[Rfam]
Shown here is a 126-nucleotide RNA sequence from Xaviernesmea oryzae, a member of the family "Alphaproteobacterial ar14". Gene Ontology term of the family: biological process involved in symbiotic interaction. The source organism's lineage runs through Bacteria, Pseudomonadati, Alphaproteobacteria, Hyphomicrobiales and Xaviernesmea. Rfam describes the family as follows. Smr14C2 was renamed NfeR1 (Nodule Formation Efficiency RNA) highly expressed in salt stress and during the symbiotic interaction on legume roots. By type it is a small RNA. The match comes from Rfam's covariance-model search (104 bits).

RNA sequence: GUCUGUCGAUGAUCUCACUCCUCCUCCCAGGGAUCGUCGGCCCGAACGGCGGCACUCCUCCUCCCAAGCCGCCCGUUCACUUUUAGAGAAAGCCUGCCGCACCUCCUCCCGCGGCAGGCUUUUUCG
Numbered sequence: 001g002u003c004u005g006u007c008g009a010u011g012a013u014c015u016c017a018c019u020c021c022u023c024c025u026c027c028c029a030g031g032g033a034u035c036g037u038c039g040g041c042c043c044g045a046a047c048g049g050c051g052g053c054a055c056u057c058c059u060c061c062u063c064c065c066a067a068g069c070c071g072c073c074c075g076u077u078c079a080c081u082u083u084u085a086g087a088g089a090a091a092g093c094c095u096g097c098c099g100c101a102c103c104u105c106c107u108c109c110c111g112c113g114g115c116a117g118g119c120u121u122u123u124u125c126g
Stems, first nucleotide, its partner, number of pairs: 007039010044078005049072005090121011